[Rfam]
RNA sequence: UUGCACGUAGCUACCCCGGGCUCCUCUGAAAUUCACAGAUGUAGAAAGAAGCCCCAAUGCUAGUGCUAAAUUUUCGCCCUUUAGUGUUGCAGAUUUGCCUCUUUUGUACCUUUAUUCCACGGCUUAUCUGUGUCAAAUAAUCGGCUAAAUUU
Numbered sequence: 001u002u003g004c005a006c007g008u009a010g011c012u013a014c015c016c017c018g019g020g021c022u023c024c025u026c027u028g029a030a031a032u033u034c035a036c037a038g039a040u041g042u043a044g045a046a047a048g049a050a051g052c053c054c055c056a057a058u059g060c061u062a063g064u065g066c067u068a069a070a071u072u073u074u075c076g077c078c079c080u081u082u083a084g085u086g087u088u089g090c091a092g093a094u095u096u097g098c099c100u101c102u103u104u105u106g107u108a109c110c111u112u113u114a115u116u117c118c119a120c121g122g123c124u125u126a127u128c129u130g131u132g133u134c135a136a137a138u139a140a141u142c143g144g145c146u147a148a149a150u151u152u
Base pairs, nucleotide, nucleotide: 003066004065005064006063010060011059018054019053020052021051022050023048025045026044027043076145077144078143081140082139085135086134088132089131090130091129092128093127097123098122099121
small nucleolar RNA snoR134: a 152-nucleotide RNA sequence from Striga asiatica. Pairs were carried over by alignment from the consensus structure, which was predicted with RNAalifold. The family's RNA type in Rfam is H/ACA-box small nucleolar RNA. A reference for the family is Chen and Wu (2009), "Mining small RNA sequencing data: a new approach to identify small nucleolar RNAs in Arabidopsis", Nucleic Acids Res. Its family is annotated with RNA processing and nucleolus in the Gene Ontology. Taxonomically the source falls in Striga (Eukaryota, Euphyllophyta, asterids, lamiids).